[Rfam]
RNA sequence: AUCGCUCUCCGGGUGAUCGCUGUUACUGCCUUCGGGUGCGUAAUGGAGGAAAGUCCGGACACCGUAGGGCAACGCGCCUCGUGAAGAACGAGGGAUGCUGGGCUCAAGCCCAGUAGACGGACAGUGCAGCAGAGAGUAAACCGCCGAUGGAUCUCCGGAUCACAGGUAAGGGUGAAAGGGUGGUGUAAGAGACCACCGCUCAGUAGGUAACUACUGGGGCAAGGUAAACCCCGCGUGGUGCAAGACAUAACAGAGGAAGGGUGCCCACCCGACUAGAAUCCUUGGGUAUUAGUCGCACGACAGCUUCGGCUGCGUCUGGCUUCGGCCAGGAGAUAAAUGAUCACACAGAGCUACCUCGGUAGCUUGGACAGAAUCCGGCUUACAGGAGAGCGAUGGAA
Numbered sequence: 001a002u003c004g005c006u007c008u009c010c011g012g013g014u015g016a017u018c019g020c021u022g023u024u025a026c027u028g029c030c031u032u033c034g035g036g037u038g039c040g041u042a043a044u045g046g047a048g049g050a051a052a053g054u055c056c057g058g059a060c061a062c063c064g065u066a067g068g069g070c071a072a073c074g075c076g077c078c079u080c081g082u083g084a085a086g087a088a089c090g091a092g093g094g095a096u097g098c099u100g101g102g103c104u105c106a107a108g109c110c111c112a113g114u115a116g117a118c119g120g121a122c123a124g125u126g127c128a129g130c131a132g133a134g135a136g137u138a139a140a141c142c143g144c145c146g147a148u149g150g151a152u153c154u155c156c157g158g159a160u161c162a163c164a165g166g167u168a169a170g171g172g173u174g175a176a177a178g179g180g181u182g183g184u185g186u187a188a189g190a191g192a193c194c195a196c197c198g199c200u201c202a203g204u205a206g207g208u209a210a211c212u213a214c215u216g217g218g219g220c221a222a223g224g225u226a227a228a229c230c231c232c233g234c235g236u237g238g239u240g241c242a243a244g245a246c247a248u249a250a251c252a253g254a255g256g257a258a259g260g261g262u263g264c265c266c267a268c269c270c271g272a273c274u275a276g277a278a279u280c281c282u283u284g285g286g287u288a289u290u291a292g293u294c295g296c297a298c299g300a301c302a303g304c305u306u307c308g309g310c311u312g313c314g315u316c317u318g319g320c321u322u323c324g325g326c327c328a329g330g331a332g333a334u335a336a337a338u339g340a341u342c343a344c345a346c347a348g349a350g351c352u353a354c355c356u357c358g359g360u361a362g363c364u365u366g367g368a369c370a371g372a373a374u375c376c377g378g379c380u381u382a383c384a385g386g387a388g389a390g391c392g393a394u395g396g397a398a
Base pairs, nucleotide, nucleotide: 001394002393003392004391005390006389007388008387009386010385011383013344014343015342016341017340018339020046021045022044023043024042025041026040051381052380053379055378056377057376058375059374060240061239062238063237067270068269069268072236073235074234075233076232077093078092079091080090081089094118096115097114098113099112100111101110102109103108119231120230124229125228126225127224141171142170143167144166145165148164149163150161151160152159153158179197180196181195182194183193184192198220199218200217201216202215203214204213205212206211244294245293246292247289254283255282256281258279263273265271
Bacterial RNase P class A: a 398-nucleotide RNA from Rubritalea profundi.
The match comes from Rfam's covariance-model search (206 bits).
Gene Ontology terms of the family: dimeric ribonuclease P complex, ribonuclease P activity and tRNA processing.